[Rfam]
RNA sequence: CCCGGUGUGGCUGAUGAGGAUGUUGCCACUGAGACUGUGUGAUGCUCAGUCUGAAGUAAACGCGCUGACACACCACGG
Numbered sequence: 001c002c003c004g005g006u007g008u009g010g011c012u013g014a015u016g017a018g019g020a021u022g023u024u025g026c027c028a029c030u031g032a033g034a035c036u037g038u039g040u041g042a043u044g045c046u047c048a049g050u051c052u053g054a055a056g057u058a059a060a061c062g063c064g065c066u067g068a069c070a071c072a073c074c075a076c077g078g
Base pairs, nucleotide, nucleotide: 005073006072007071008070009069010021012019029049030048031047032046033045
Dot-bracket structure: ....((((((.(......).).......(((((...........)))))...................))))).....
Small nucleolar RNA U105B: a 78-nucleotide RNA sequence from Octodon degus. The family is grouped with related families in Rfam's "SNORD105 clan". Pairs were carried over by alignment from the consensus structure, which was predicted with WAR. The family's RNA type in Rfam is C/D-box small nucleolar RNA. On this family, see Yang et al., Nucleic Acids Res 2006: "snoSeeker: an advanced computational package for screening of guide and orphan snoRNA genes in the human genome".